[Rfam]
RNA sequence: CCAGCCGGCCGGAUGGCCGCUCCGCAAGGAGAGGAAAGUCCGGGCUCCAUGGAGGCACGGUGCCGGGUAACGCCCGGCGAGGGUGACCUCAGGGAAAGUGCCACAGAAAGCAAACCGCCCCGGUUCGCCGGGGUAAGGGUGAAAGGGUGCGGUAAGAGCGCACCGCGCGUCCGGCAACGGACGUGGCAGGGCAAACCCCACCGGGAGCAAAACCUAAUAGGGACGGCGCGGGCUCGACCCAGAUCCCGCCUCCAGAUAGCCGUCCGGGUUGGUUGCUCGAGGCGUCCGGCGACGGACGUCCCAGAGGAAUGGCCAUCGCGCAGGUGUCAAAACCUGCCCUACAGAACCCGGCUUACAGGCCGGCUGGCAUU
Numbered sequence: 001c002c003a004g005c006c007g008g009c010c011g012g013a014u015g016g017c018c019g020c021u022c023c024g025c026a027a028g029g030a031g032a033g034g035a036a037a038g039u040c041c042g043g044g045c046u047c048c049a050u051g052g053a054g055g056c057a058c059g060g061u062g063c064c065g066g067g068u069a070a071c072g073c074c075c076g077g078c079g080a081g082g083g084u085g086a087c088c089u090c091a092g093g094g095a096a097a098g099u100g101c102c103a104c105a106g107a108a109a110g111c112a113a114a115c116c117g118c119c120c121c122g123g124u125u126c127g128c129c130g131g132g133g134u135a136a137g138g139g140u141g142a143a144a145g146g147g148u149g150c151g152g153u154a155a156g157a158g159c160g161c162a163c164c165g166c167g168c169g170u171c172c173g174g175c176a177a178c179g180g181a182c183g184u185g186g187c188a189g190g191g192c193a194a195a196c197c198c199c200a201c202c203g204g205g206a207g208c209a210a211a212a213c214c215u216a217a218u219a220g221g222g223a224c225g226g227c228g229c230g231g232g233c234u235c236g237a238c239c240c241a242g243a244u245c246c247c248g249c250c251u252c253c254a255g256a257u258a259g260c261c262g263u264c265c266g267g268g269u270u271g272g273u274u275g276c277u278c279g280a281g282g283c284g285u286c287c288g289g290c291g292a293c294g295g296a297c298g299u300c301c302c303a304g305a306g307g308a309a310u311g312g313c314c315a316u317c318g319c320g321c322a323g324g325u326g327u328c329a330a331a332a333c334c335u336g337c338c339c340u341a342c343a344g345a346a347c348c349c350g351g352c353u354u355a356c357a358g359g360c361c362g363g364c365u366g367g368c369a370u371u
Stems, first nucleotide, its partner, number of pairs: 001367010011356001012317007020031004036354003040351005045207004054251002058203005063077005078092001079090004093198002098196002100192003115138002117134007146164006165187001166185008211274004221265006243257003281300008
About this RNA
The record is a 371-nucleotide RNA from Terrihabitans soli, which matches "Bacterial RNase P class A" in Rfam. A search with the family's covariance model found it, with a score of 313 bits. The family's RNA type in Rfam is ribozyme. The base pairs follow the family's consensus structure, which is taken from published work.